[Rfam]
RNA sequence: GCACCUGAAUUUUCCCUAUUGCUCGCUGUGCAUUGCAGAUUUGGGGCCGUUGGUGCUACAGCACAGCAGUGGAAGUCCAGAUGGGUGUUCUCCACUGGUUUGGAACUCAUCUCUACACCUCAACAUUU
Numbered sequence: 001g002c003a004c005c006u007g008a009a010u011u012u013u014c015c016c017u018a019u020u021g022c023u024c025g026c027u028g029u030g031c032a033u034u035g036c037a038g039a040u041u042u043g044g045g046g047c048c049g050u051u052g053g054u055g056c057u058a059c060a061g062c063a064c065a066g067c068a069g070u071g072g073a074a075g076u077c078c079a080g081a082u083g084g085g086u087g088u089u090c091u092c093c094a095c096u097g098g099u100u101u102g103g104a105a106c107u108c109a110u111c112u113c114u115a116c117a118c119c120u121c122a123a124c125a126u127u128u
Base pairs, nucleotide, nucleotide: 001056002055003054004053005052014046015045016044017043018042022038069121071119079112080111081110082109083108084107085106086105092103093102094101

This 128-nucleotide RNA sequence from Amazona collaria belongs to the Rfam family "Small nucleolar RNA SNORA55". Rfam classes the family as an H/ACA-box small nucleolar RNA. Rfam's curators write: ACA55 is a member of the H/ACA class of snoRNA that guide the sites of modification of uridines to pseudouridines. Rfam links the family to the GO terms nucleolus and RNA processing.